[Rfam]
RNA: Streptomyces RNA 1601
RNA sequence: GACGACCGGCCGGACGCCCACGUACGACGAGGGAUCCGGCCCACAAGUGGAGGCUCCGAACUCCCACCUGGCCGCUCCCCGAGCGGCGGGUCACCGGUCAGGCGGACCGCACCGAGCGUGCAGGCCCGCCCGAUGCGCCCCGUGAUCACCACGGAGGUGCUCCGGUAGUUGUGUGGAGCCCCGCUGUGAUCAGCCGGGGCAUUUUUU
Numbered sequence: 001g002a003c004g005a006c007c008g009g010c011c012g013g014a015c016g017c018c019c020a021c022g023u024a025c026g027a028c029g030a031g032g033g034a035u036c037c038g039g040c041c042c043a044c045a046a047g048u049g050g051a052g053g054c055u056c057c058g059a060a061c062u063c064c065c066a067c068c069u070g071g072c073c074g075c076u077c078c079c080c081g082a083g084c085g086g087c088g089g090g091u092c093a094c095c096g097g098u099c100a101g102g103c104g105g106a107c108c109g110c111a112c113c114g115a116g117c118g119u120g121c122a123g124g125c126c127c128g129c130c131c132g133a134u135g136c137g138c139c140c141c142g143u144g145a146u147c148a149c150c151a152c153g154g155a156g157g158u159g160c161u162c163c164g165g166u167a168g169u170u171g172u173g174u175g176g177a178g179c180c181c182c183g184c185u186g187u188g189a190u191c192a193g194c195c196g197g198g199g200c201a202u203u204u205u206u207u
Stems, first nucleotide, its partner, number of pairs: 004099006012037002038092005044070002047067004051062002071087007101130005107123001109121004137200006143192003150188005156182002159179005